[Rfam]
RNA sequence: CAAAUUUUAUGACAAUGGUAGAGAGCACGCUAGUAGACAGCCUUGCCAUUUGCACGAAUGCUGACAGGUGUGCUCUCUCUCAUUGUCAAGCAAAU
Numbered sequence: 001c002a003a004a005u006u007u008u009a010u011g012a013c014a015a016u017g018g019u020a021g022a023g024a025g026c027a028c029g030c031u032a033g034u035a036g037a038c039a040g041c042c043u044u045g046c047c048a049u050u051u052g053c054a055c056g057a058a059u060g061c062u063g064a065c066a067g068g069u070g071u072g073c074u075c076u077c078u079c080u081c082a083u084u085g086u087c088a089a090g091c092a093a094a095u
Base pairs, nucleotide, nucleotide: 010088011087012086013085014084016082017081020078021077023075025073026072027071028070029069030068031067033065034064
RNA: MIR535 microRNA precursor family
Organism: Citrus unshiu